Rfam assigns this 58-nucleotide RNA from Sonneratia alba to the family "Plastid-psbA-3 3UTR RNA". On this family, see Richter et al., Plant Commun 2023: "Retrograde signaling in plants: A critical review focusing on the GUN pathway and beyond". Clan: Plastid-psbA 3UTR RNA clan. NCBI's taxonomy places the organism under Eukaryota, Tracheophyta, Myrtales, Lythraceae, Sonneratia. The family's RNA type in Rfam is cis-regulatory element. From the family's description: Plastid psbA-3 is a non-coding RNA (ncRNA) present in plastids. It was identified in inverted repeat sequences in the 3 prime untranslate region (3UTR) of photosystem II quinone-binding protein (psbA). The family's consensus secondary structure was predicted with LocARNA.
[Rfam]
RNA sequence: AAAGGAGCAAUAAUCAACACUCUUGAUAAAACAAGAGUCUGAUUAUUGCUCCUUUACU
Numbered sequence: 001a002a003a004g005g006a007g008c009a010a011u012a013a014u015c016a017a018c019a020c021u022c023u024u025g026a027u028a029a030a031a032c033a034a035g036a037g038u039c040u041g042a043u044u045a046u047u048g049c050u051c052c053u054u055u056a057c058u
Stems, first nucleotide, its partner, number of pairs: 001055013015041001020037006